[Rfam]
RNA sequence: UAGCUUUUCCUAUUAUACUAAAGUAGAAUUUAGUAAGCAUUAGAUUAUUUACUUACUAGAGUUUAGUUAGUAGGGAUAGUUAGGUCUUAGAUUAGUUCUAAGAUUACGCUAGCUAGUUAAUAUAGCGUAGAACUAUAGGGGCUAUGUGGUAAUAUAACUUAGAUUAGGGGAGGCUAAGGCCUAGUAGCUAUACUAAUCCUAAGGGAAGUCUUACUUAAGUAAUCUUUUAGGACCCUUAUAGAGCAUAGUAAGGUAUAGGUAGUUUUCUUAGGAGACUACUUAAGGGAUAUGCUAGACUUAUAGGAAACUAUGCUAAAUAUAAAAGACCUAUAAUCUAGAUUAUUUAGAGGGUAAUUAAGUGUAGGAGGAAAUACCUGCUAUAAGCCUAGUAAAAUUAUAUAGUUAGGGGAUAAGUUAUUCUAUGUGGUUAUUUAAAUAGGGAAUAUAAGCUAGGUUUAGACUAUUAUAAGAUAGGUUAGUU
Dot-bracket structure: (((((((((((..(..((((((......))))))....).(((((................................................................................................................................................................................................................................................................................................................................................................................................)))))...)))))..)..)))).).....(((((((....))).))))....
Numbered sequence: 001u002a003g004c005u006u007u008u009c010c011u012a013u014u015a016u017a018c019u020a021a022a023g024u025a026g027a028a029u030u031u032a033g034u035a036a037g038c039a040u041u042a043g044a045u046u047a048u049u050u051a052c053u054u055a056c057u058a059g060a061g062u063u064u065a066g067u068u069a070g071u072a073g074g075g076a077u078a079g080u081u082a083g084g085u086c087u088u089a090g091a092u093u094a095g096u097u098c099u100a101a102g103a104u105u106a107c108g109c110u111a112g113c114u115a116g117u118u119a120a121u122a123u124a125g126c127g128u129a130g131a132a133c134u135a136u137a138g139g140g141g142c143u144a145u146g147u148g149g150u151a152a153u154a155u156a157a158c159u160u161a162g163a164u165u166a167g168g169g170g171a172g173g174c175u176a177a178g179g180c181c182u183a184g185u186a187g188c189u190a191u192a193c194u195a196a197u198c199c200u201a202a203g204g205g206a207a208g209u210c211u212u213a214c215u216u217a218a219g220u221a222a223u224c225u226u227u228u229a230g231g232a233c234c235c236u237u238a239u240a241g242a243g244c245a246u247a248g249u250a251a252g253g254u255a256u257a258g259g260u261a262g263u264u265u266u267c268u269u270a271g272g273a274g275a276c277u278a279c280u281u282a283a284g285g286g287a288u289a290u291g292c293u294a295g296a297c298u299u300a301u302a303g304g305a306a307a308c309u310a311u312g313c314u315a316a317a318u319a320u321a322a323a324a325g326a327c328c329u330a331u332a333a334u335c336u337a338g339a340u341u342a343u344u345u346a347g348a349g350g351g352u353a354a355u356u357a358a359g360u361g362u363a364g365g366a367g368g369a370a371a372u373a374c375c376u377g378c379u380a381u382a383a384g385c386c387u388a389g390u391a392a393a394a395u396u397a398u399a400u401a402g403u404u405a406g407g408g409g410a411u412a413a414g415u416u417a418u419u420c421u422a423u424g425u426g427g428u429u430a431u432u433u434a435a436a437u438a439g440g441g442a443a444u445a446u447a448a449g450c451u452a453g454g455u456u457u458a459g460a461c462u463a464u465u466a467u468a469a470g471a472u473a474g475g476u477u478a479g480u481u
Stems, first nucleotide, its partner, number of pairs: 001453001002451004006445001007442005014039001017034006041434005459477004463472003